[Rfam]
RNA sequence: UCCAGUGGUGGUCAGGUGUCUUUGUCAUCUCGAUGUCUGUGACAGUGUUACACUGCUGGAAGAUAAAAGUACUGUCCAUUUUAGCUGUCUGUCCUCUGUUCUGCAGGCAGCUGAUACCAGUGGGGGACAGUAUUGUGCUUCUUUGAGAGUGUGCUAAGCAGUCAAUAUCCUGCUCAGUGCUAGAGUAGAAGCUUACACA
Numbered sequence: 001u002c003c004a005g006u007g008g009u010g011g012u013c014a015g016g017u018g019u020c021u022u023u024g025u026c027a028u029c030u031c032g033a034u035g036u037c038u039g040u041g042a043c044a045g046u047g048u049u050a051c052a053c054u055g056c057u058g059g060a061a062g063a064u065a066a067a068a069g070u071a072c073u074g075u076c077c078a079u080u081u082u083a084g085c086u087g088u089c090u091g092u093c094c095u096c097u098g099u100u101c102u103g104c105a106g107g108c109a110g111c112u113g114a115u116a117c118c119a120g121u122g123g124g125g126g127a128c129a130g131u132a133u134u135g136u137g138c139u140u141c142u143u144u145g146a147g148a149g150u151g152u153g154c155u156a157a158g159c160a161g162u163c164a165a166u167a168u169c170c171u172g173c174u175c176a177g178u179g180c181u182a183g184a185g186u187a188g189a190a191g192c193u194u195a196c197a198c199a
Stems, first nucleotide, its partner, number of pairs: 001060009011051002015046001017044004021039001024036002069133009083121001086116003090109003094106002097103001135194001137192006151180003155176001157174005